[Rfam]
RNA: tRNA
RNA sequence: GCGGUCGUGGCGGAAUUGGCAGACGCGCACGGUUCAGGUCCGUGUGGGCUAAUCACCCGUGGAGGUUCGAGUCCUCUCGACCGCA
Numbered sequence: 001g002c003g004g005u006c007g008u009g010g011c012g013g014a015a016u017u018g019g020c021a022g023a024c025g026c027g028c029a030c031g032g033u034u035c036a037g038g039u040c041c042g043u044g045u046g047g048g049c050u051a052a053u054c055a056c057c058c059g060u061g062g063a064g065g066u067u068c069g070a071g072u073c074c075u076c077u078c079g080a081c082c083g084c085a
Base pairs, nucleotide, nucleotide: 001084002083003082004081005080006079007078010026011025012024028044029043030042031041032040061077062076063075064074065073